[Rfam]
RNA sequence: GUGCGGGGACGACCCCGCGCCUCUCCUACAAUCCGGUCGGGACGACCCGC
Numbered sequence: 001g002u003g004c005g006g007g008g009a010c011g012a013c014c015c016c017g018c019g020c021c022u023c024u025c026c027u028a029c030a031a032u033c034c035g036g037u038c039g040g041g042a043c044g045a046c047c048c049g050c
Stems, first nucleotide, its partner, number of pairs: 001020008038049004

Guanidine-II riboswitch aptamer (mini-ykkC): a 50-nucleotide RNA from Mesorhizobium intechi. About the family: Simpler in structure and has fewer highly conserved nucleotide positions than the ykkC-yxkD leader.